[Rfam]
Rfam assigns this 126-nucleotide RNA sequence from Octodon degus to the family "Small nucleolar RNA SNORD22". It scores 143 bits against the family's covariance model. The literature on the family includes a 1996 paper in Nature by Tycowski et al., "A mammalian gene with introns instead of exons generating stable RNA products". Gene Ontology terms of the family: nucleolus and RNA processing.
RNA sequence: UCCCAGUGAUGAAAUUCUCAGAAGUCUUACUUCCUGUCCUAGCCUCAGAGCCUGUAAAGGUGAACCCACUGGGGCUGGCUGGAGGAAAAGAGGAGGAUUUGUUCUGUAAGGAACUGUCUGAGGGAU
Numbered sequence: 001u002c003c004c005a006g007u008g009a010u011g012a013a014a015u016u017c018u019c020a021g022a023a024g025u026c027u028u029a030c031u032u033c034c035u036g037u038c039c040u041a042g043c044c045u046c047a048g049a050g051c052c053u054g055u056a057a058a059g060g061u062g063a064a065c066c067c068a069c070u071g072g073g074g075c076u077g078g079c080u081g082g083a084g085g086a087a088a089a090g091a092g093g094a095g096g097a098u099u100u101g102u103u104c105u106g107u108a109a110g111g112a113a114c115u116g117u118c119u120g121a122g123g124g125a126u
Stems, first nucleotide, its partner, number of pairs: 001125004
The family's RNA type in Rfam is C/D-box small nucleolar RNA.